Source information: A member of the RNA family "MIR398 microRNA precursor family" from Populus trichocarpa, 110 nucleotides long.
RNA sequence: GUACACCCCAGAGGAGUGGCUCCAGAGAACACAGGGGGUUGGUUUUCUAGCUGUAAGCUACAAGAUGGACAAAGCACUCUGUGUUCUCAGGUCACCCCUUUGGGGCACCC
Numbered sequence: 001g002u003a004c005a006c007c008c009c010a011g012a013g014g015a016g017u018g019g020c021u022c023c024a025g026a027g028a029a030c031a032c033a034g035g036g037g038g039u040u041g042g043u044u045u046u047c048u049a050g051c052u053g054u055a056a057g058c059u060a061c062a063a064g065a066u067g068g069a070c071a072a073a074g075c076a077c078u079c080u081g082u083g084u085u086c087u088c089a090g091g092u093c094a095c096c097c098c099u100u101u102g103g104g105g106c107a108c109c110c
Stems, first nucleotide, its partner, number of pairs: 007104002011100004016095004025088010
Its family is annotated with RISC complex and miRNA-mediated post-transcriptional gene silencing in the Gene Ontology. Lineage of the source: Eukaryota > Viridiplantae > Spermatophyta > Gunneridae > Populus. For this family Rfam cites "Computational identification of plant microRNAs and their targets, including a stress-induced miRNA" (Jones-Rhoades and Bartel, Mol Cell, 2004).